RNA sequence: AACUCGGCAAAUUGACACCGUAACUUCGGAAGAAGGUGUGCCUCCGGUAGGUGAAGGGCUUGCGCCCGGAGCCGAUGGAGGUCGCAGAGAAACG
Dot-bracket structure: ..............(((((....(....).....)))))((((((..........((((....)))).........))))))(...).......
RNA: Bacterial large subunit ribosomal RNA, nucleotides 1701 to 1794